[Rfam]
RNA sequence: CAUUAUUCUCAGGGCGGGGUGAAAUUCCCCACCGGCGGUAUGUCAGCAAGCAAUGGUUGCGAGACUGACGAGCCCGCGAGCGCCCAGACGUUGGUUUGGGGUCAGCAGACUUGGUGAGAGGCCAAGGCCGACGGUUAAAGUCCGGAUGAAAGAGGAUGAUC
Numbered sequence: 001c002a003u004u005a006u007u008c009u010c011a012g013g014g015c016g017g018g019g020u021g022a023a024a025u026u027c028c029c030c031a032c033c034g035g036c037g038g039u040a041u042g043u044c045a046g047c048a049a050g051c052a053a054u055g056g057u058u059g060c061g062a063g064a065c066u067g068a069c070g071a072g073c074c075c076g077c078g079a080g081c082g083c084c085c086a087g088a089c090g091u092u093g094g095u096u097u098g099g100g101g102u103c104a105g106c107a108g109a110c111u112u113g114g115u116g117a118g119a120g121g122c123c124a125a126g127g128c129c130g131a132c133g134g135u136u137a138a139a140g141u142c143c144g145g146a147u148g149a150a151a152g153a154g155g156a157u158g159a160u161c
Stems, first nucleotide, its partner, number of pairs: 003159008017029003031141002033130002035077004072128002080106002110126005132144003

Rfam assigns this 161-nucleotide RNA from Grimontia hollisae to the family "FMN riboswitch aptamer (RFN element)". Taxonomically the source falls in Grimontia hollisae (Bacteria, Pseudomonadati, Pseudomonadota, Gammaproteobacteria). Pairs were carried over by alignment from the consensus structure, which is taken from published work.